[Rfam]
Purine riboswitch aptamer: a 100-nucleotide sequence from Paenibacillus apis. Lineage of the source: Bacteria > Bacillati > Bacillota > Caryophanales > Paenibacillus. Pairs were carried over by alignment from the consensus structure, which is taken from published work.
RNA sequence: UGACAAAUAGCUUGAUCGAUUCGUAUAACCUCAAAGAUACGGUUUGAGGGUCUCUACAAGGAACCAUAAAUUCCUGGCUACGAACGGGGUGUUUCGCAUA
Dot-bracket structure: ...................((((((...(((((((.......))))))).........(((((.......)))))...))))))................
Numbered sequence: 001u002g003a004c005a006a007a008u009a010g011c012u013u014g015a016u017c018g019a020u021u022c023g024u025a026u027a028a029c030c031u032c033a034a035a036g037a038u039a040c041g042g043u044u045u046g047a048g049g050g051u052c053u054c055u056a057c058a059a060g061g062a063a064c065c066a067u068a069a070a071u072u073c074c075u076g077g078c079u080a081c082g083a084a085c086g087g088g089g090u091g092u093u094u095c096g097c098a099u100a
Stems, first nucleotide, its partner, number of pairs: 020084006029049007059075005